[Rfam]
The family of this 221-nucleotide sequence from Micromonospora sp. Llam0 is "Group II catalytic intron D1-D4-6". Group II introns are found in rRNA, tRNA and mRNA of organelles in fungi, plants and protists, and also in mRNA in bacteria.

Nucleotides: 221
Base pairs, nucleotide, nucleotide: 012037013036014035015034016033019031020030021029023189025187026186039091040090041089042088045086046085047084048083049081050080051076052075053074054073055072056071057070058069059068060067061066111215112213114212115211116210117209118208119207132206133205134204135203136202137201138164139163140162143158144157145156146155169200170199171198172197173196174195175194176193177192178191179190
Number, partner (000 for none) and nucleotide at each position: 001000g002000a003000a004000g005000a006000g007000c008000u009000c010000u011000a012037c013036g014035c015034c016033g017000a018000a019031g020030g021029a022000g023189u024000a025187g026186c027000g028000a029021u030020c031019c032000a033016c034015g035014g036013c037012g038000g039091c040090c041089c042088c043000g044000a045086g046085u047084c048083a049081u050080g051076c052075g053074c054073u055072g056071g057070c058069g059068u060067c061066u062000g063000u064000g065000a066061g067060g068059g069058c070057g071056u072055u073054g074053g075052u076051g077000a078000a079000g080050c081049g082000u083048u084047g085046a086045c087000a088042g089041g090040g091039g092000u093000a094000c095000g096000u097000g098000c099000a100000g101000g102000c103000c104000a105000g106000g107000c108000u109000a110000u111215u112213g113000a114212g115211c116210c117209u118208c119207g120000a121000a122000a123000u124000u125000u126000c127000g128000u129000g130000a131000c132206c133205g134204g135203g136202g137201u138164g139163c140162c141000g142000a143158c144157g145156c146155u147000g148000u149000c150000a151000c152000a153000g154000a155146g156145g157144u158143g159000g160000a161000a162140g163139g164138c165000a166000a167000c168000a169200c170199c171198g172197c173196u174195g175194g176193g177192g178191g179190c180000g181000u182000u183000u184000u185000c186026g187025c188000g189023a190179g191178c192177c193176u194175c195174c196173g197172g198171u199170g200169g201137g202136c203135c204134c205133c206132g207119c208118g209117g210116g211115g212114u213112c214000a215111g216000a217000g218000a219000a220000c221000c